[Rfam]
RNA sequence: GCUGAGGGAUGAUGACGGCAGAGGGCUGAAUUGCAGUGUCCUCCAGCAGUUUUCUGUCAUGGAAGGACGCAAUGGCAAAUCUUCUGAAGCGAGUUGCAUUCUGACCUCAGC
Numbered sequence: 001g002c003u004g005a006g007g008g009a010u011g012a013u014g015a016c017g018g019c020a021g022a023g024g025g026c027u028g029a030a031u032u033g034c035a036g037u038g039u040c041c042u043c044c045a046g047c048a049g050u051u052u053u054c055u056g057u058c059a060u061g062g063a064a065g066g067a068c069g070c071a072a073u074g075g076c077a078a079a080u081c082u083u084c085u086g087a088a089g090c091g092a093g094u095u096g097c098a099u100u101c102u103g104a105c106c107u108c109a110g111c
Stems, first nucleotide, its partner, number of pairs: 001111007014101002025034002036097003039092002041089001044086003049070002052067004071083002074080001
A member of the RNA family "Small nucleolar RNA SNORD89" from Geotrypetes seraphini, 111 nucleotides long. On this family, see Huttenhofer et al., EMBO J 2001: "RNomics: an experimental approach that identifies 201 candidates for novel, small, non-messenger RNAs in mouse". A search with the family's covariance model found it, with a score of 69 bits. From the family's description: snoRNA HBII-289 belongs to the family of C/D snoRNAs. It is the human orthologue of the mouse MBII-289 and has no identified RNA target. By type it is a C/D-box small nucleolar RNA.